[Rfam]
A member of the RNA family "Small nucleolar RNA SNORA12" from Pedionomus torquatus, 139 nucleotides long. Rfam links the family to the GO terms RNA processing and nucleolus. Taxonomically the source falls in Pedionomus (Eukaryota, Euteleostomi, Sauropsida, Sauria). The match comes from Rfam's covariance-model search (65 bits).
RNA sequence: UAUUGUGGUGGUUUCUGUAUUUGGCAGUUCUGGAACAACAACAGAGCAGCCUUGAACUACCACAGAGAUCAGAAAGGAGAAGGUUGUGCUGAGAACUUUUUCAAGCUUUCAGUUUUCAGCACUUUUUUCUCCUACACAA
Numbered sequence: 001u002a003u004u005g006u007g008g009u010g011g012u013u014u015c016u017g018u019a020u021u022u023g024g025c026a027g028u029u030c031u032g033g034a035a036c037a038a039c040a041a042c043a044g045a046g047c048a049g050c051c052u053u054g055a056a057c058u059a060c061c062a063c064a065g066a067g068a069u070c071a072g073a074a075a076g077g078a079g080a081a082g083g084u085u086g087u088g089c090u091g092a093g094a095a096c097u098u099u100u101u102c103a104a105g106c107u108u109u110c111a112g113u114u115u116u117c118a119g120c121a122c123u124u125u126u127u128u129c130u131c132c133u134a135c136a137c138a139a
Stems, first nucleotide, its partner, number of pairs: 005063007023051003027047006076132006103124003
About the family: U108 belongs to the H/ACA family of snoRNAs. The sequence is predicted to guide the pseudouridylation of the U372 residue in the 28S rRNA subunit. The literature on the family includes a 2005 paper in Nucleic Acids Res by Gu et al., "A novel experimental approach for systematic identification of box H/ACA snoRNAs from eukaryotes".